[Rfam]
RNA sequence: AAACCGCCCCCUAAGUUUUGCAACUGUAGCAGUUUUGGUCCCCCAAGGUCAAUUUUUGGUAAAAAAAAAAUUAAAAAAUAACACGUGGCACGCACCUCACUUAGGGUGCCACGUCAACGUAGACCGAGUCAAAAUUGGCCUUGAGGGCCAAAACUGCCACAGAUGCAAAACUUAGGGGGCGGUUU
Dot-bracket structure: ((.(((((...(((((((((((.((((.((((((((((.(((.(((....................................((.((((((.(..........).)))))).))..........................))).))))))))))))).)))).)))))))))))...))))).))
Rfam assigns this 185-nucleotide RNA sequence from Medicago truncatula to the family "MIR2619 microRNA precursor family". Pairs were carried over by alignment from the consensus structure, which was predicted with RNAalifold.